The family of this 152-nucleotide sequence is "c-di-AMP riboswitch aptamer (ydaO/yuaA leader)". A search with the family's covariance model found it, with a score of 68 bits. Rfam links the family to the GO terms regulation of gene expression and cyclic-di-AMP binding. The base pairs follow the family's consensus structure.
[Rfam]
RNA sequence: GAAACAAAAAAACCAAACACGUCCGAUGGCAGAGGCGGGGGACCCAUUAUCUGGGUUCUUCCUCGUAAGAGCCCUUGGGGUUAAGUCGCUCCAGCGACCGGGUGUCUCCCAUCCGAACCCGACAGCUCACCUCGCAGGCACAGGGAGGAAAA
Numbered sequence: 001g002a003a004a005c006a007a008a009a010a011a012a013c014c015a016a017a018c019a020c021g022u023c024c025g026a027u028g029g030c031a032g033a034g035g036c037g038g039g040g041g042a043c044c045c046a047u048u049a050u051c052u053g054g055g056u057u058c059u060u061c062c063u064c065g066u067a068a069g070a071g072c073c074c075u076u077g078g079g080g081u082u083a084a085g086u087c088g089c090u091c092c093a094g095c096g097a098c099c100g101g102g103u104g105u106c107u108c109c110c111a112u113c114c115g116a117a118c119c120c121g122a123c124a125g126c127u128c129a130c131c132u133c134g135c136a137g138g139c140a141c142a143g144g145g146a147g148g149a150a151a152a
Stems, first nucleotide, its partner, number of pairs: 013138002018034001020032001035135006045077002078120003086097004100114004